[Rfam]
RNA: Ribosomal protein L10 leader
RNA sequence: CUAGCAAAGCAAUCACUGCCGAAGACAGCAGGUGCCGUAAGGCGUAAGGGCAACCACCUGCCGAGGAGAAUGAUUUCUAAUGAUUAGAAUGAAUUUGGGCCUCUUUUGUCUAAGGACAGAGAGGCCUUUUCUUAUUCGAGA
Numbered sequence: 001c002u003a004g005c006a007a008a009g010c011a012a013u014c015a016c017u018g019c020c021g022a023a024g025a026c027a028g029c030a031g032g033u034g035c036c037g038u039a040a041g042g043c044g045u046a047a048g049g050g051c052a053a054c055c056a057c058c059u060g061c062c063g064a065g066g067a068g069a070a071u072g073a074u075u076u077c078u079a080a081u082g083a084u085u086a087g088a089a090u091g092a093a094u095u096u097g098g099g100c101c102u103c104u105u106u107u108g109u110c111u112a113a114g115g116a117c118a119g120a121g122a123g124g125c126c127u128u129u130u131c132u133u134a135u136u137c138g139a140g141a
Base pairs, nucleotide, nucleotide: 028061029060030059031058032057033056034043035042036041098126099125100124101123102122103121104120105119106118